[Rfam]
Nucleotides: 091
Stems, first nucleotide, its partner, number of pairs: 004056001006054007015045002017079005028041004070084003
Number, partner (000 for none) and nucleotide at each position: 001000g002000g003000c004056c005000c006054g007053g008052a009051c010050c011049g012048u013000g014000a015045c016044u017079g018078g019077c020076g021075u022000g023000c024000u025000g026000g027000g028041a029040u030039g031038g032000g033000g034000u035000c036000a037000a038031c039030c040029a041028u042000c043000g044016g045015g046000a047000a048012g049011c050010g051009g052008u053007c054006c055000c056004g057000u058000c059000g060000a061000g062000u063000g064000a065000c066000g067000u068000g069000u070084g071083c072082c073000g074000u075021g076020c077019g078018c079017c080000u081000g082072g083071g084070c085000c086000g087000a088000u089000u090000u091000u
A member of the RNA family "ZMP/ZTP riboswitch aptamer (pfl RNA motif)" from Plantactinospora sp. BB1, 91 nucleotides long. The base pairs follow the family's consensus structure, which is taken from published work. NCBI's taxonomy places the organism under Bacteria, Actinomycetota, Actinomycetes, Micromonosporaceae, Plantactinospora. It scores 53 bits against the family's covariance model. Gene Ontology terms of the family: one-carbon metabolic process and regulation of purine nucleotide biosynthetic process.